skipping-rope RNA: an 82-nucleotide RNA.
RNA sequence: AAGAAUAGAAGUAGAAAAACAUCGGGAACUACGCACCCUUUGGGUAUCUGAAAAGCGGGGAAUUCCCGUCCCGCCUAUUCCA
Numbered sequence: 001a002a003g004a005a006u007a008g009a010a011g012u013a014g015a016a017a018a019a020c021a022u023c024g025g026g027a028a029c030u031a032c033g034c035a036c037c038c039u040u041u042g043g044g045u046a047u048c049u050g051a052a053a054a055g056c057g058g059g060g061a062a063u064u065c066c067c068g069u070c071c072c073g074c075c076u077a078u079u080c081c082a
Base pairs, nucleotide, nucleotide: 003080004079005078006077007076008075011032012031013030014029023068024067025066026065027064034050035045036044037043038042055074056073057072058071059070

The sequence is in the family's curated seed alignment.